[Rfam]
RNA sequence: AAUAAUCUUCGGGGCAGGGUGUAAUUCCCUACCGGCGGUGACUGAUUUUCAGAAGUCCGCGAACCGCUACGGCGGCCGAUUUGGUGAAAUUCCAAAACCGACAGUAUAGUCUGGAUGAUAGAAGAUGGCG
Numbered sequence: 001a002a003u004a005a006u007c008u009u010c011g012g013g014g015c016a017g018g019g020u021g022u023a024a025u026u027c028c029c030u031a032c033c034g035g036c037g038g039u040g041a042c043u044g045a046u047u048u049u050c051a052g053a054a055g056u057c058c059g060c061g062a063a064c065c066g067c068u069a070c071g072g073c074g075g076c077c078g079a080u081u082u083g084g085u086g087a088a089a090u091u092c093c094a095a096a097a098c099c100g101a102c103a104g105u106a107u108a109g110u111c112u113g114g115a116u117g118a119u120a121g122a123a124g125a126u127g128g129c130g
Stems, first nucleotide, its partner, number of pairs: 003128001005126006017029003031110002033100002035060004055098002064075002080096005102113003
This 130-nucleotide RNA sequence from Butyrivibrio sp. ob235 belongs to the Rfam family "FMN riboswitch aptamer (RFN element)". Pairs were carried over by alignment from the consensus structure, which is taken from published work. Taxonomically the source falls in Butyrivibrio (Bacteria, Clostridia, Lachnospirales, Lachnospiraceae). It scores 123 bits against the family's covariance model.